[Rfam]
RNA sequence: UGCAUAAAUGACGGGAGCUUGUGUGACAGGCUGAGAGUAAGCUAAAGCUUAGACCGAACCAGAACUAGAUAAUGCUAGCGUUGGGAAGAUUUAUACUAUAUAUG
Number, nucleotide and partner (000 for none) at each position: 001u000002g000003c000004a000005u000006a092007a091008a090009u089010g000011a000012c056013g055014g054015g000016a000017g031018c030019u029020u028021g027022u000023g000024u000025g000026a000027c021028a020029g019030g018031c017032u000033g000034a000035g000036a000037g000038u051039a050040a049041g048042c047043u000044a000045a000046a000047g042048c041049u040050u039051a038052g000053a000054c014055c013056g012057a000058a000059c084060c083061a082062g081063a000064a000065c078066u077067a076068g075069a000070u000071a000072a000073u000074g000075c068076u067077a066078g065079c000080g000081u062082u061083g060084g059085g000086a000087a000088g000089a009090u008091u007092u006093a000094u000095a000096c000097u000098a000099u000100a000101u000102a000103u000104g000

The family of this 104-nucleotide RNA from Campylobacter lari is "TPP riboswitch aptamer (THI element)". The source organism's lineage runs through Bacteria, Pseudomonadati, Campylobacterales, Campylobacteraceae and Campylobacter lari. The base pairs follow the family's consensus structure, which is taken from published work. It scores 57 bits against the family's covariance model.